[Rfam]
Rfam assigns this 234-nucleotide sequence from Macrophomina phaseolina to the family "Group I catalytic intron".
RNA sequence: CAAACGGCCUUUAAAGUAUGAUUCUAUAAGUGCUCUCUUUAAAUUUGACUAAUUGCUGGAAACUCCUAAAUAUUAGGAAAACCAGCAGGAAACUUCUGGAUAUAUUUGUUUUGUUUUUUUAAUCAAAUUAUAUCGUAGUAUCUUCAGAGACUAUACGUCAAAAGCUAAUAGAUUCUAGUAAAUGUAGUUAAGCUAUUAGUUAAUAUAUAGUCCGAUCAAGAUAGUAAUAUCUUU
Number, nucleotide and partner (000 for none) at each position: 001c000002a000003a000004a000005c000006g000007g000008c000009c000010u000011u000012u000013a000014a000015a025016g024017u000018a000019u000020g000021a000022u000023u000024c016025u015026a000027u000028a000029a000030g000031u000032g000033c000034u000035c000036u000037c000038u000039u000040u000041a000042a000043a000044u162045u161046u160047g159048a000049c157050u000051a000052a000053u000054u087055g086056c085057u084058g083059g082060a000061a000062a000063c000064u078065c077066c076067u075068a074069a000070a000071u000072a000073u000074u068075a067076g066077g065078a064079a000080a000081a000082c059083c058084a057085g056086c055087a054088g143089g142090a000091a000092a000093c138094u137095u000096c135097u000098g000099g000100a000101u000102a000103u000104a128105u127106u126107u125108g124109u000110u000111u000112u000113g000114u000115u000116u000117u000118u000119u000120u000121a000122a000123u000124c108125a107126a106127a105128u104129u000130a000131u000132a000133u000134c000135g096136u000137a094138g093139u000140a000141u000142c089143u088144u000145c000146a000147g213148a000149g212150a211151c210152u209153a208154u000155a000156c000157g049158u000159c047160a046161a045162a044163a000164g000165c199166u198167a197168a196169u195170a194171g193172a000173u191174u000175c000176u000177a000178g000179u000180a000181a000182a000183u000184g000185u000186a000187g000188u000189u000190a000191a173192g000193c171194u170195a169196u168197u167198a166199g165200u000201u000202a000203a000204u000205a000206u000207a000208u153209a152210g151211u150212c149213c147214g000215a000216u000217c000218a000219a232220g231221a230222u229223a228224g000225u000226a000227a000228u223229a222230u221231c220232u219233u000234u000
Annotation: The family has 12 seed sequences and 5,602 matches in Rfam 15.1.